[Rfam]
RNA sequence: UCAGUCUUGGAAUCAAGAUGCUUUGGGACUGACACGGUAAUAGCCACCCACAAGGGGAUCUGCUCAGGGUGGCGCGUAUGGCAGUCAAACGGUGAAAGUAGGAGCCCUUGGUCAGUUGGUGCCAAGCCCAGGGGAACCCCGAAUUUUAUAACCGUUUGACCGUUCGGGCGUAGCAGGGCGAGCCGAGUGCUGAUAACACGAUUGAAGGCUGAAACCGAACAGUGAGC
Numbered sequence: 001u002c003a004g005u006c007u008u009g010g011a012a013u014c015a016a017g018a019u020g021c022u023u024u025g026g027g028a029c030u031g032a033c034a035c036g037g038u039a040a041u042a043g044c045c046a047c048c049c050a051c052a053a054g055g056g057g058a059u060c061u062g063c064u065c066a067g068g069g070u071g072g073c074g075c076g077u078a079u080g081g082c083a084g085u086c087a088a089a090c091g092g093u094g095a096a097a098g099u100a101g102g103a104g105c106c107c108u109u110g111g112u113c114a115g116u117u118g119g120u121g122c123c124a125a126g127c128c129c130a131g132g133g134g135a136a137c138c139c140c141g142a143a144u145u146u147u148a149u150a151a152c153c154g155u156u157u158g159a160c161c162g163u164u165c166g167g168g169c170g171u172a173g174c175a176g177g178g179c180g181a182g183c184c185g186a187g188u189g190c191u192g193a194u195a196a197c198a199c200g201a202u203u204g205a206a207g208g209c210u211g212a213a214a215c216c217g218a219a220c221a222g223u224g225a226g227c
Stems, first nucleotide, its partner, number of pairs: 001032007043073006061175004084160009162220006181210004
RNA: PAGEV RNA